[Rfam]
RNA sequence: AGCUUCGCUCAGUGGCUGUGUUGUACACAGUGAGGUUUAUCCGGGGCGUGUGUCAUUAUUGCUUGAAAAUUUUUCCCAAUACUCUGUCAUGAUGACUUGAAAUAUAGUCAACAUUGGCAAUAUUUUACAGUCUCUAUGGAGA
Numbered sequence: 001a002g003c004u005u006c007g008c009u010c011a012g013u014g015g016c017u018g019u020g021u022u023g024u025a026c027a028c029a030g031u032g033a034g035g036u037u038u039a040u041c042c043g044g045g046g047c048g049u050g051u052g053u054c055a056u057u058a059u060u061g062c063u064u065g066a067a068a069a070u071u072u073u074u075c076c077c078a079a080u081a082c083u084c085u086g087u088c089a090u091g092a093u094g095a096c097u098u099g100a101a102a103u104a105u106a107g108u109c110a111a112c113a114u115u116g117g118c119a120a121u122a123u124u125u126u127a128c129a130g131u132c133u134c135u136a137u138g139g140a141g142a
Stems, first nucleotide, its partner, number of pairs: 020056002023053002034042002086118003089114003093110005131142004

A member of the RNA family "U4 spliceosomal RNA" from Aotus nancymaae, 142 nucleotides long. The base pairs follow the family's consensus structure, which is taken from published work. For this family Rfam cites "Crystal structure of the spliceosomal 15.5kD protein bound to a U4 snRNA fragment" (Vidovic et al., Mol Cell, 2000). By type it is a spliceosomal small nuclear RNA. About the family: U4 small nuclear RNA (U4 snRNA) is a component of the major U2-dependent spliceosome. Its family is annotated with U4 snRNP and spliceosomal tri-snRNP complex assembly in the Gene Ontology.